[Rfam]
RNA: Gammaprotebacteria rimP leader
RNA sequence: AGCCGCAUCGCGGCAUACAGGGUCCAGUCACAAAAAGCCCCGAAUUUUCGGGGUUUUUUGUUAUCAGGAAAUCGUAACACUGGGCUUUAGGCCCUUUUUUU
Numbered sequence: 001a002g003c004c005g006c007a008u009c010g011c012g013g014c015a016u017a018c019a020g021g022g023u024c025c026a027g028u029c030a031c032a033a034a035a036a037g038c039c040c041c042g043a044a045u046u047u048u049c050g051g052g053g054u055u056u057u058u059u060g061u062u063a064u065c066a067g068g069a070a071a072u073c074g075u076a077a078c079a080c081u082g083g084g085c086u087u088u089a090g091g092c093c094c095u096u097u098u099u100u101u
Stems, first nucleotide, its partner, number of pairs: 034057009082094004